[Rfam]
RNA: Salmonella enterica sRNA STnc210
Organism: Salmonella enterica
RNA sequence: GAUAAAAAUAAUUUUUUUGCAGGCAGUUGGAUGGCAACCAUCAGGGGCCAGAUUAACACGAAAUGAGGAGGAUUCCGGAAGUUAACGCACAAAAGGAGGAUCAGGGCGCAGAUUUUCCGCCAGGAAGCGCUCGCCCCACACAAAAGCGAGAGAUGGGUUUCUCGCUAUAUUAUACUC
Numbered sequence: 001g002a003u004a005a006a007a008a009u010a011a012u013u014u015u016u017u018u019g020c021a022g023g024c025a026g027u028u029g030g031a032u033g034g035c036a037a038c039c040a041u042c043a044g045g046g047g048c049c050a051g052a053u054u055a056a057c058a059c060g061a062a063a064u065g066a067g068g069a070g071g072a073u074u075c076c077g078g079a080a081g082u083u084a085a086c087g088c089a090c091a092a093a094a095g096g097a098g099g100a101u102c103a104g105g106g107c108g109c110a111g112a113u114u115u116u117c118c119g120c121c122a123g124g125a126a127g128c129g130c131u132c133g134c135c136c137c138a139c140a141c142a143a144a145a146g147c148g149a150g151a152g153a154u155g156g157g158u159u160u161c162u163c164g165c166u167a168u169a170u171u172a173u174a175c176u177c
Base pairs, nucleotide, nucleotide: 019088020087022049023048024047030042031041032040033039034038053085054084055083056082057081104132105131106130107129108128109127115126116125117124